[Rfam]
RNA sequence: AUGCAUCUAUUUGACAGCCCCAGAGCAGUUACUGUCUGCUAAGGUUUCCACUACAGAUGCAAAAACAGCGUCCCUGUGCUUUCUCUCUGACUGCUUUCUGCUUUCUGUGGCAGCCGAGAUUGAAUAGAGGAAUACAGGA
Numbered sequence: 001a002u003g004c005a006u007c008u009a010u011u012u013g014a015c016a017g018c019c020c021c022a023g024a025g026c027a028g029u030u031a032c033u034g035u036c037u038g039c040u041a042a043g044g045u046u047u048c049c050a051c052u053a054c055a056g057a058u059g060c061a062a063a064a065a066c067a068g069c070g071u072c073c074c075u076g077u078g079c080u081u082u083c084u085c086u087c088u089g090a091c092u093g094c095u096u097u098c099u100g101c102u103u104u105c106u107g108u109g110g111c112a113g114c115c116g117a118g119a120u121u122g123a124a125u126a127g128a129g130g131a132a133u134a135c136a137g138g139a
Stems, first nucleotide, its partner, number of pairs: 002061007012050002016047002019044002024040005071131003075127001079122001082119004087113003091109001